The family of this 600-nucleotide part of an RNA from Saccharopolyspora elongata is "Bacterial large subunit ribosomal RNA". The family has 102 seed sequences and 51,934 matches in Rfam 15.1.
RNA sequence: UAUGUAGGGCACAUGGUGGAUGCCUUGGUACCAGGAGCCGAUGAAGGACGUGGGAGACUGCGAUAGUCCUCGGGGAGUUGUCAACCGAGCUGUGAUCCGAGGGUGUCCGAAUGGGGUAACCCAGCCCGAGUGAUGUCGGGUUACUCAUGCCUGAAUAUAUAGGGUAUGAGGGGGAACGCGGGGAAGUGAAACAUCUUAGUACCCGCAGGAAGAGAAAACACUGGUGAUUCCGUGAGUAGUGGCGAGCGAAAGCGGAGGAGGCUAAACCGUGCGCGUGGGAUACCUGGUAGGGGUUGCGUGUGCGGGGUUGUGGGACGCUAUUGGAGACGGCUACUGACGUCUCAGCAUUGUUGUGUUUGCUAGUUGAACAGGUUGGGAAACCUGGCCGUAGACGGUGAGAGCCCGGUAAGCGAAAGUGGAUACAGCGUGUGUGGUGGUGUUCCCGAGUAGCAGCGCUUUCGUGGAGGGUGCUGUGAAUCUGGCGGGACCACUCGCUAAGCCUAAAUACUUCCUGGUGACCGAUAGUGGAUAGUACCGUGAGGGAAUGGUGAAAAGUACCCCGGGAGGGGAGUGAAAGAGUUCCUGAAACCGUGUGCCUGC
Numbered sequence: 001u002a003u004g005u006a007g008g009g010c011a012c013a014u015g016g017u018g019g020a021u022g023c024c025u026u027g028g029u030a031c032c033a034g035g036a037g038c039c040g041a042u043g044a045a046g047g048a049c050g051u052g053g054g055a056g057a058c059u060g061c062g063a064u065a066g067u068c069c070u071c072g073g074g075g076a077g078u079u080g081u082c083a084a085c086c087g088a089g090c091u092g093u094g095a096u097c098c099g100a101g102g103g104u105g106u107c108c109g110a111a112u113g114g115g116g117u118a119a120c121c122c123a124g125c126c127c128g129a130g131u132g133a134u135g136u137c138g139g140g141u142u143a144c145u146c147a148u149g150c151c152u153g154a155a156u157a158u159a160u161a162g163g164g165u166a167u168g169a170g171g172g173g174g175a176a177c178g179c180g181g182g183g184a185a186g187u188g189a190a191a192c193a194u195c196u197u198a199g200u201a202c203c204c205g206c207a208g209g210a211a212g213a214g215a216a217a218a219c220a221c222u223g224g225u226g227a228u229u230c231c232g233u234g235a236g237u238a239g240u241g242g243c244g245a246g247c248g249a250a251a252g253c254g255g256a257g258g259a260g261g262c263u264a265a266a267c268c269g270u271g272c273g274c275g276u277g278g279g280a281u282a283c284c285u286g287g288u289a290g291g292g293g294u295u296g297c298g299u300g301u302g303c304g305g306g307g308u309u310g311u312g313g314g315a316c317g318c319u320a321u322u323g324g325a326g327a328c329g330g331c332u333a334c335u336g337a338c339g340u341c342u343c344a345g346c347a348u349u350g351u352u353g354u355g356u357u358u359g360c361u362a363g364u365u366g367a368a369c370a371g372g373u374u375g376g377g378a379a380a381c382c383u384g385g386c387c388g389u390a391g392a393c394g395g396u397g398a399g400a401g402c403c404c405g406g407u408a409a410g411c412g413a414a415a416g417u418g419g420a421u422a423c424a425g426c427g428u429g430u431g432u433g434g435u436g437g438u439g440u441u442c443c444c445g446a447g448u449a450g451c452a453g454c455g456c457u458u459u460c461g462u463g464g465a466g467g468g469u470g471c472u473g474u475g476a477a478u479c480u481g482g483c484g485g486g487a488c489c490a491c492u493c494g495c496u497a498a499g500c501c502u503a504a505a506u507a508c509u510u511c512c513u514g515g516u517g518a519c520c521g522a523u524a525g526u527g528g529a530u531a532g533u534a535c536c537g538u539g540a541g542g543g544a545a546u547g548g549u550g551a552a553a554a555g556u557a558c559c560c561c562g563g564g565a566g567g568g569g570a571g572u573g574a575a576a577g578a579g580u581u582c583c584u585g586a587a588a589c590c591g592u593g594u595g596c597c598u599g600c
Stems, first nucleotide, its partner, number of pairs: 007598010022583001023548002027520002029517007036509002038173002046108003049062003068102007077090003113122003123142007144170009177208001178206005188195002218225002228505001229256005239247002259502004267305012312444003318436001349427013363411003369384005387391001393405003450474009481496005535542002558569004